[Rfam]
RNA sequence: UUAUAAGCAAAUUUUUACUUUUUAGAUUCAUUGAAUAACUAAUGUAUCUAGCCUGAAUUAUGGACCAAAUACAUUGGUUAUUCAAUGAAUCUAAAAAGUGAAAAUUUGCUUAUAA
Dot-bracket structure: .((((((.(((((.(((((((((((.((((((((((((((((((....(.(.............).)....)))))))))))))))))).))))))))))).))))).)))))).